[Rfam]
This 265-nucleotide RNA from Paenibacillus sambharensis belongs to the Rfam family "Bacterial large signal recognition particle RNA". NCBI's taxonomy places the organism under Bacteria, Bacillati, Bacillota, Bacilli, Paenibacillus. Rfam's curators write: The signal recognition particle (SRP) is a universally conserved ribonucleoprotein involved in the co-translational targeting of proteins to membranes.
RNA sequence: CCGUGCUAGACGGGGAGGUAGCGGUGCCCUGUAACUCGCAAUCCGCUGUAGCGAGGUUGAAUUCCUGUUAGAGGUUGUGCGAUGCAAGGCUGGCGUCUGUGAAGCGUGUUGACGGUCGGGUCCUCCGCAAUGGGCGCCUGUGAAUCUGGUCAGGUCCGGAAGGAAGCAGCCAUAAGCAGGUUAGCCCAUGUGCCGGAGGGGUGCCUGGCCCGAGCGUGGAUCAGAAGUGCCGCUUGGAUCGCAUACAUCGAAGACAGGUGCACGG
Numbered sequence: 001c002c003g004u005g006c007u008a009g010a011c012g013g014g015g016a017g018g019u020a021g022c023g024g025u026g027c028c029c030u031g032u033a034a035c036u037c038g039c040a041a042u043c044c045g046c047u048g049u050a051g052c053g054a055g056g057u058u059g060a061a062u063u064c065c066u067g068u069u070a071g072a073g074g075u076u077g078u079g080c081g082a083u084g085c086a087a088g089g090c091u092g093g094c095g096u097c098u099g100u101g102a103a104g105c106g107u108g109u110u111g112a113c114g115g116u117c118g119g120g121u122c123c124u125c126c127g128c129a130a131u132g133g134g135c136g137c138c139u140g141u142g143a144a145u146c147u148g149g150u151c152a153g154g155u156c157c158g159g160a161a162g163g164a165a166g167c168a169g170c171c172a173u174a175a176g177c178a179g180g181u182u183a184g185c186c187c188a189u190g191u192g193c194c195g196g197a198g199g200g201g202u203g204c205c206u207g208g209c210c211c212g213a214g215c216g217u218g219g220a221u222c223a224g225a226a227g228u229g230c231c232g233c234u235u236g237g238a239u240c241g242c243a244u245a246c247a248u249c250g251a252a253g254a255c256a257g258g259u260g261c262a263c264g265g
Stems, first nucleotide, its partner, number of pairs: 001265006009058003012030004017025001019023001035055005064258006073249003079242005085236004092231002094227001096225004102221001105216003114210008122199006128190002131188005136181006147172004155164003
A search with the family's covariance model found it, with a score of 210 bits.